[Rfam]
Nucleotides: 070
Base pairs, nucleotide, nucleotide: 001070002069003068004067
Number, partner (000 for none) and nucleotide at each position: 001070g002069u003068u004067c005000a006000g007000u008000g009000a010000u011000g012000a013000a014000u015000a016000u017000a018000a019000a020000a021000c022000a023000g024000a025000c026000a027000a028000g029000c030000a031000u032000a033000u034000g035000g036000c037000u038000g039000a040000c041000u042000c043000u044000a045000g046000u047000g048000a049000u050000g051000c052000c053000u054000c055000c056000u057000c058000g059000a060000u061000g062000u063000c064000u065000g066000a067004g068003a069002a070001c